Rfam assigns this 98-nucleotide sequence from Betaproteobacteria bacterium SCGC AG-212-J23 to the family "TPP riboswitch aptamer (THI element)". About the family: Vitamin B(1) in its active form thiamin pyrophosphate (TPP) is an essential coenzyme that is synthesised by coupling of pyrimidine and thiazole moieties in bacteria. The source organism's lineage runs through Bacteria, Pseudomonadati, Pseudomonadota and Betaproteobacteria.
RNA sequence: UCCUAGCGUUGGGGGUCCCAUGCAGGAUGCAUGGGUGAGAAACACCCUUCGAACCUGAAGCGGGUAAUGCCGCCGGAGGAAAACGCCGAUGAACGCCA
Numbered sequence: 001u002c003c004u005a006g007c008g009u010u011g012g013g014g015g016u017c018c019c020a021u022g023c024a025g026g027a028u029g030c031a032u033g034g035g036u037g038a039g040a041a042a043c044a045c046c047c048u049u050c051g052a053a054c055c056u057g058a059a060g061c062g063g064g065u066a067a068u069g070c071c072g073c074c075g076g077a078g079g080a081a082a083a084c085g086c087c088g089a090u091g092a093a094c095g096c097c098a
Stems, first nucleotide, its partner, number of pairs: 006086005011048004016042001017035007054079003060073004
Dot-bracket structure: .....(((((((((.((((((((.....)))))))......)..)))).....(((...((((......))))...)))..)))))............